Overview:
This 72-nucleotide sequence from Fannyhessea vaginae belongs to the Rfam family "tRNA". The base pairs follow the family's consensus structure, which is taken from published work. By type it is a transfer RNA.
[Rfam]
RNA sequence: GGGCGUUUAGCUCAGGGGGAGAGCGCUUCCCUGACACGGAAGAGGUCAGAAGUUCAAAUCUUCUAACGCCCA
Dot-bracket structure: (((((((..((((.......)))).(((((.......))))).....(((((.......)))))))))))).